About this RNA:
The record is a 135-nucleotide sequence from Oryctolagus cuniculus, which matches "U11 spliceosomal RNA" in Rfam. Rfam links the family to the GO terms mRNA 5'-splice site recognition, U11 snRNP and pre-mRNA 5'-splice site binding. The family's consensus secondary structure is taken from published work.
RNA sequence: AAAAAGGGCUUCUGUCGUGAGUGGCGCACGUAGGGCGGCUCUGUUCGCUCUUCGUGGGGAAUCCACGUCAACAGAUUUUGGAAGCCUCGUUUUUUGAUAUUGGGGCAGCUGCUGAUCGCUGGUCCUGGCGCCCGA
Numbered sequence: 001a002a003a004a005a006g007g008g009c010u011u012c013u014g015u016c017g018u019g020a021g022u023g024g025c026g027c028a029c030g031u032a033g034g035g036c037g038g039c040u041c042u043g044u045u046c047g048c049u050c051u052u053c054g055u056g057g058g059g060a061a062u063c064c065a066c067g068u069c070a071a072c073a074g075a076u077u078u079u080g081g082a083a084g085c086c087u088c089g090u091u092u093u094u095u096g097a098u099a100u101u102g103g104g105g106c107a108g109c110u111g112c113u114g115a116u117c118g119c120u121g122g123u124c125c126u127g128g129c130g131c132c133c134g135a
Base pairs, nucleotide, nucleotide: 008085009084010083011082012081013026014025015024016023017022027056028055029054030053032051033050034049035048036047037046038045058079059078060077061076062075063074103133104132105131106130108129109128110127111126114124115123116122117121
About this RNA
The family's RNA type in Rfam is spliceosomal small nuclear RNA.